RNA sequence: CAAACAAGUUCUUUUAUUUUUUGAAUCGUUUCAAACAAGUCAUUUUAAAGGAUGAUGAUGAUGAUUCAGAUGAUAGCAACAAAGAGCAUUAUCC
Numbered sequence: 001c002a003a004a005c006a007a008g009u010u011c012u013u014u015u016a017u018u019u020u021u022u023g024a025a026u027c028g029u030u031u032c033a034a035a036c037a038a039g040u041c042a043u044u045u046u047a048a049a050g051g052a053u054g055a056u057g058a059u060g061a062u063g064a065u066u067c068a069g070a071u072g073a074u075a076g077c078a079a080c081a082a083a084g085a086g087c088a089u090u091a092u093c094c
Stems, first nucleotide, its partner, number of pairs: 008087007015075004020070011031058003039053003043049002
The record is a 94-nucleotide sequence from Medicago truncatula, which matches "MIR5292 microRNA precursor family" in Rfam. The family's consensus secondary structure was predicted with RNAalifold. The source organism's lineage runs through Eukaryota, Tracheophyta, Euphyllophyta, Trifolieae and Medicago.